[Rfam]
RNA: Small nucleolar RNA SNORA44
RNA sequence: UAGCAUGUUUAUAAGAUUCAUGGCUGGUAGUAGCUAUGGGAUCUUCAACUGCAUGUGAGAAUAAUCUAGGAAGACUUUGACAGCACAGGUCAGCAUAAUACUUGUAGCUGCCCCUCACCUUUCCUGUAUUU
Numbered sequence: 001u002a003g004c005a006u007g008u009u010u011a012u013a014a015g016a017u018u019c020a021u022g023g024c025u026g027g028u029a030g031u032a033g034c035u036a037u038g039g040g041a042u043c044u045u046c047a048a049c050u051g052c053a054u055g056u057g058a059g060a061a062u063a064a065u066c067u068a069g070g071a072a073g074a075c076u077u078u079g080a081c082a083g084c085a086c087a088g089g090u091c092a093g094c095a096u097a098a099u100a101c102u103u104g105u106a107g108c109u110g111c112c113c114c115u116c117a118c119c120u121u122u123c124c125u126g127u128a129u130u131u
Base pairs, nucleotide, nucleotide: 012038016035018033020031021030069123070122071121072120073119083111084110086104087103088102089101